Notes:
Rfam assigns this 106-nucleotide sequence from Phascolarctobacterium succinatutens to the family "Glycine riboswitch aptamer". Its family is annotated with glycine biosynthetic process in the Gene Ontology. Lineage of the source: Bacteria > Negativicutes > Acidaminococcales > Acidaminococcaceae > Phascolarctobacterium succinatutens. The match comes from Rfam's covariance-model search (52 bits).
[Rfam]
Nucleotides: 106
Stems, first nucleotide, its partner, number of pairs: 009098005020031003033086003036082002040080001042078001046074002
Number, partner (000 for none) and nucleotide at each position: 001000u002000g003000a004000c005000a006000c007000a008000a009098c010097u011096c012095u013094g014000g015000a016000g017000a018000g019000u020031c021030c022029c023000u024000u025000a026000a027000a028000u029022g030021g031020g032000c033086g034085c035084c036082g037081a038000a039000g040080g041000u042078g043000c044000a045000a046074a047073g048000a049000u050000g051000u052000c053000u054000u055000c056000u057000g058000a059000a060000a061000u062000u063000c064000a065000g066000a067000a068000a069000c070000g071000u072000c073047c074046u075000u076000a077000u078042c079000u080040c081037u082036c083000a084035g085034g086033c087000c088000a089000g090000u091000g092000g093000a094013c095012a096011g097010a098009g099000c100000a101000a102000a103000g104000c105000u106000u